[Rfam]
RNA sequence: GGUCACGAGUUCCAGCCGACAGCCCCGGCUCGCUGGACAGCAACCCUCCAUUUCACGGUGGGGUGCUCCGGGUGACGACCCGGUCCGCGUCGACCGUCGCGGACAAGCGUGGAAU
Numbered sequence: 001g002g003u004c005a006c007g008a009g010u011u012c013c014a015g016c017c018g019a020c021a022g023c024c025c026c027g028g029c030u031c032g033c034u035g036g037a038c039a040g041c042a043a044c045c046c047u048c049c050a051u052u053u054c055a056c057g058g059u060g061g062g063g064u065g066c067u068c069c070g071g072g073u074g075a076c077g078a079c080c081c082g083g084u085c086c087g088c089g090u091c092g093a094c095c096g097u098c099g100c101g102g103a104c105a106a107g108c109g110u111g112g113a114a115u
Stems, first nucleotide, its partner, number of pairs: 001080004009038001011037006021030002039067003044063003048058002083104007091096001
Source information
The record is a 115-nucleotide sequence from Gordonia humi, which matches "SAM (S-adenosyl methionine) riboswitch aptamer" in Rfam. The family is grouped with related families in Rfam's "SAM clan". Taxonomically the source falls in Gordonia (Bacteria, Actinomycetes, Mycobacteriales, Gordoniaceae).